The record is a 194-nucleotide sequence from Dichanthelium oligosanthes, which matches "MIR1435 microRNA precursor family" in Rfam.
RNA sequence: UAGUUUUGUCCCAAGUCAAACUUCUCCAACCAGGUUUAUACAGAAAUAUAUUAACAUCUACAAUACCAAAUAAAUGCACUAUCAAGACAUAUUUUAUGGUGGAUUUAGUGGCACUAAUUUGAUGUUGAAGAUGUUGGUGCAUUUUUCCACAAAAUUGGUCAAAGUUAGAGAAGUUUGGCUUAGGAAAAAACCAG
Numbered sequence: 001u002a003g004u005u006u007u008g009u010c011c012c013a014a015g016u017c018a019a020a021c022u023u024c025u026c027c028a029a030c031c032a033g034g035u036u037u038a039u040a041c042a043g044a045a046a047u048a049u050a051u052u053a054a055c056a057u058c059u060a061c062a063a064u065a066c067c068a069a070a071u072a073a074a075u076g077c078a079c080u081a082u083c084a085a086g087a088c089a090u091a092u093u094u095u096a097u098g099g100u101g102g103a104u105u106u107a108g109u110g111g112c113a114c115u116a117a118u119u120u121g122a123u124g125u126u127g128a129a130g131a132u133g134u135u136g137g138u139g140c141a142u143u144u145u146u147c148c149a150c151a152a153a154a155u156u157g158g159u160c161a162a163a164g165u166u167a168g169a170g171a172a173g174u175u176u177g178g179c180u181u182a183g184g185a186a187a188a189a190a191c192c193a194g
Stems, first nucleotide, its partner, number of pairs: 005189003009185001011183001013181014034160001043147001044145003049139003053135007061127002067121005
Pairs were carried over by alignment from the consensus structure, which was predicted with RNAalifold. The match comes from Rfam's covariance-model search (99 bits). Rfam links the family to the GO terms miRNA-mediated post-transcriptional gene silencing and RISC complex.